[Rfam]
The record is a 116-nucleotide RNA sequence from Aneurinibacillus soli, which matches "SAM riboswitch aptamer (S box leader)" in Rfam. About the family: The SAM riboswitch is found upstream of a number of genes which code for proteins involved in methionine or cysteine biosynthesis in Gram-positive bacteria. The SAM riboswitch acts at the level of transcription termination control. The predicted structure consists of a complex stem-loop region followed by a single stem loop terminator region. An alternative and mutually exclusive form involves bases in the 3' segment of helix 1 with those in the 5' region of helix 5 to form a structure termed the anti-terminator form. This entry represents the conserved core of the complex structure involving helices 1-4. Pairs were carried over by alignment from the consensus structure, which is taken from published work.
RNA sequence: AGCUUAUCAAGAGAGGUGGAGGGACUGGCCCGAUGAAACCCGGCAGCGGCGGCAUAAUGCUACAAGCUGUGCCAAUUCCAGCGGAGCGGCUUUACGCGUACUCUGAGAGAUAAGAG
Numbered sequence: 001a002g003c004u005u006a007u008c009a010a011g012a013g014a015g016g017u018g019g020a021g022g023g024a025c026u027g028g029c030c031c032g033a034u035g036a037a038a039c040c041c042g043g044c045a046g047c048g049g050c051g052g053c054a055u056a057a058u059g060c061u062a063c064a065a066g067c068u069g070u071g072c073c074a075a076u077u078c079c080a081g082c083g084g085a086g087c088g089g090c091u092u093u094a095c096g097c098g099u100a101c102u103c104u105g106a107g108a109g110a111u112a113a114g115a116g
Base pairs, nucleotide, nucleotide: 003114004113005112006111007110008109013041015040016039017038021031022030023029025081026080027079028078042073043072044071045070047069048068049063051061052060077108082105083104084103085102086101